A member of the RNA family "Group II catalytic intron D1-D4-6" from Lichenibacterium minor, 221 nucleotides long. For this family Rfam cites "The ins and outs of group II introns" (Bonen and Vogel, Trends Genet, 2001). Group II introns are found in rRNA, tRNA and mRNA of organelles in fungi, plants and protists, and also in mRNA in bacteria. The pairing is the family consensus, mapped onto this sequence. The organism belongs to Lichenibacterium, within Bacteria.
RNA sequence: CAAGUCCACUGCGGUGAAGGAGUAGCGAUCCACAUCGGCCCCGAGCCGUGCGUGUCUGCCCGUGAGGGCAGGGGCGAAGCGUCGGCAGGGGAGCACACAGGCCAGCCAUUGAGCCGCGAAAUCGGGAAGUCCUGGACGCCGACGCCGUUAAUUAGGCGGAAGGCAACACGGCGGGGAGCGCCAGCGCGAGCACCCCGACGGUCCGGCGCGGUCGGAGACCC
Number, nucleotide and partner (000 for none) at each position: 001c000002a000003a000004g000005u000006c000007c000008a000009c000010u000011g000012c037013g036014g035015u034016g033017a000018a000019g031020g030021a029022g000023u189024a000025g187026c186027g000028a000029u021030c020031c019032a000033c016034a015035u014036c013037g012038g000039c091040c090041c089042c088043g000044a000045g086046c085047c084048g083049u081050g080051c076052g075053u074054g000055u072056c071057u070058g069059c068060c067061c066062g000063u000064g000065a000066g061067g060068g059069c058070a057071g056072g055073g000074g053075c052076g051077a000078a000079g000080c050081g049082u000083c048084g047085g046086c045087a000088g042089g041090g040091g039092a000093g000094c000095a000096c000097a000098c000099a000100g000101g000102c000103c000104a000105g000106c000107c000108a000109u000110u215111g213112a000113g212114c211115c210116g209117c208118g207119a000120a000121a000122u000123c000124g000125g000126g000127a000128a000129g000130u000131c000132c206133u205134g204135g203136a202137c201138g164139c163140c162141g000142a000143c158144g157145c156146c155147g000148u000149u000150a000151a000152u000153u000154a000155g146156g145157c144158g143159g000160a000161a000162g140163g139164c138165a000166a000167c000168a000169c200170g199171g000172c197173g196174g195175g194176g193177a000178g191179c190180g000181c000182c000183a000184g000185c000186g026187c025188g000189a023190g179191c178192a000193c176194c175195c174196c173197g172198a000199c170200g169201g137202u136203c135204c134205g133206g132207c118208g117209c116210g115211g114212u113213c111214g000215g110216a000217g000218a000219c000220c000221c000